Fluoride riboswitch aptamer (crcB RNA motif): a 62-nucleotide RNA sequence from Acidisphaera rubrifaciens. NCBI's taxonomy places the organism under Bacteria, Pseudomonadota, Alphaproteobacteria, Acidisphaera, Acidisphaera rubrifaciens. A search with the family's covariance model found it, with a score of 57 bits. The family's consensus secondary structure is taken from published work. Gene Ontology terms of the family: response to fluoride and positive regulation of gene expression.
[Rfam]
Nucleotides: 062
Stems, first nucleotide, its partner, number of pairs: 010025004016053006032043004
Number, partner (000 for none) and nucleotide at each position: 001000u002000g003000c004000c005000g006000c007000g008000a009000u010025g011024g012023g013022g014000a015000u016053g017052g018051g019050g020049u021048c022013c023012c024011c025010c026000g027000a028000a029000a030000c031000c032043g033042c034041c035040c036000g037000u038000c039000c040035g041034g042033g043032c044000u045000g046000a047000u048021g049020a050019c051018u052017c053016c054000u055000g056000c057000g058000c059000u060000u061000u062000u